The family of this 72-nucleotide sequence from Scyliorhinus torazame is "tRNA". Gene Ontology term of the family: triplet codon-amino acid adaptor activity.

[Rfam]
RNA sequence: GCGAUGGUAGUAUAGUGGUGAGCAUAGCUGCCUUCCAGGCAGUUGACCCGGUUUUGAUUCCCGGUCAUUGCA
Numbered sequence: 001g002c003g004a005u006g007g008u009a010g011u012a013u014a015g016u017g018g019u020g021a022g023c024a025u026a027g028c029u030g031c032c033u034u035c036c037a038g039g040c041a042g043u044u045g046a047c048c049c050g051g052u053u054u055u056g057a058u059u060c061c062c063g064g065u066c067a068u069u070g071c072a
Stems, first nucleotide, its partner, number of pairs: 001071007010025002013022001027043005048064004
Lineage of the source: Eukaryota > Opisthokonta > Craniata > Carcharhiniformes > Scyliorhinus. The base pairs follow the family's consensus structure, which is taken from published work.